[Rfam]
RNA: Small nucleolar RNA SNORD34
Organism: Tripterygium wilfordii
RNA sequence: GAAGGCCUAUGAUGAUUUAAAUAUUGCCUACAUUGUCUGAUUUCCUUGUAUGACUGGAGGAUUAGAGAAUUUCUGAGGCCAGU
Numbered sequence: 001g002a003a004g005g006c007c008u009a010u011g012a013u014g015a016u017u018u019a020a021a022u023a024u025u026g027c028c029u030a031c032a033u034u035g036u037c038u039g040a041u042u043u044c045c046u047u048g049u050a051u052g053a054c055u056g057g058a059g060g061a062u063u064a065g066a067g068a069a070u071u072u073c074u075g076a077g078g079c080c081a082g083u
Stems, first nucleotide, its partner, number of pairs: 001083001004080004